A member of the RNA family "Small nucleolar RNA snR32" from Candida viswanathii, 182 nucleotides long. The base pairs follow the family's consensus structure, which was predicted with WAR. The family's RNA type in Rfam is H/ACA-box small nucleolar RNA.
[Rfam]
Nucleotides: 182
Stems, first nucleotide, its partner, number of pairs: 010094003015087007029044004034040001045073005051067002114175001116172003129162002133158005140153002143150001
Number, partner (000 for none) and nucleotide at each position: 001000a002000a003000c004000a005000u006000c007000a008000a009000u010094c011093g012092c013000g014000g015087a016086u017085c018084c019083a020082c021081c022000c023000u024000c025000c026000c027000u028000a029044u030043g031042a032041a033000a034040g035000a036000u037000u038000g039000g040034c041032u042031u043030u044029g045073c046072u047071u048070u049069a050000c051067g052066u053000c054000u055000a056000u057000g058000g059000g060000a061000a062000g063000c064000u065000a066052a067051u068000u069049u070048g071047g072046a073045g074000g075000u076000u077000c078000a079000c080000a081021g082020g083019u084018g085017g086016a087015u088000a089000u090000a091000a092012g093011c094010g095000u096000a097000g098000a099000g100000u101000a102000a103000c104000c105000u106000u107000a108000a109000g110000u111000g112000g113000a114175g115000c116172a117171c118170g119000u120000u121000u122000c123000u124000g125000g126000g127000c128000g129162c130161c131000u132000g133158g134157u135156g136155u137154u138000g139000a140153c141152u142000u143150u144000a145000a146000c147000c148000u149000c150143a151000u152141g153140g154137a155136a156135c157134a158133c159000u160000g161130g162129g163000a164000a165000u166000c167000a168000g169000u170118u171117g172116u173000g174000a175114c176000u177000a178000c179000a180000a181000u182000u
A reference for the family is Balakin et al. (1993), "SnR31, snR32, and snR33: three novel, non-essential snRNAs from Saccharomyces cerevisiae", Nucleic Acids Res.
Taxonomically the source falls in Candida (Eukaryota, Dikarya, Ascomycota, Saccharomycotina).